[Rfam]
RNA sequence: AUAAUUGAUGGUGAUGGAGUUCACCGAAAGUGCUUAAAUGCUGAUGACUCCUAUAGAUAA
Dot-bracket structure: .........[[[[..((((((]]]]......((......))....)))))).........
The record is a 60-nucleotide RNA sequence from Tepidibacter thalassicus, which matches "Fluoride riboswitch aptamer (crcB RNA motif)" in Rfam. A reference for the family is Ren et al. (2012), "Fluoride ion encapsulation by Mg2+ ions and phosphates in a fluoride riboswitch", Nature. The match comes from Rfam's covariance-model search (48 bits). The base pairs follow the family's consensus structure, which is taken from published work.